[Rfam]
RNA sequence: CUUGAGGCUAGAGUCACGCUUGGGUAUUUGCUAUUGCCUUAGUGUGCUAGAGUCCUCGAAGAGUAACUGCUGACUUUAUUCACUGACUGAGCCUUGUGGCACAGUCAGUCACCAAGUUAGUGACAUGG
Numbered sequence: 001c002u003u004g005a006g007g008c009u010a011g012a013g014u015c016a017c018g019c020u021u022g023g024g025u026a027u028u029u030g031c032u033a034u035u036g037c038c039u040u041a042g043u044g045u046g047c048u049a050g051a052g053u054c055c056u057c058g059a060a061g062a063g064u065a066a067c068u069g070c071u072g073a074c075u076u077u078a079u080u081c082a083c084u085g086a087c088u089g090a091g092c093c094u095u096g097u098g099g100c101a102c103a104g105u106c107a108g109u110c111a112c113c114a115a116g117u118u119a120g121u122g123a124c125a126u127g128g
Base pairs, nucleotide, nucleotide: 002059003058004057005056006055007053008052009051012048013047015046016045017044018043019042020041023038024037025036026035070120071119072118073117074116075115076114082109083108084107085106086105088103089102091100092099093098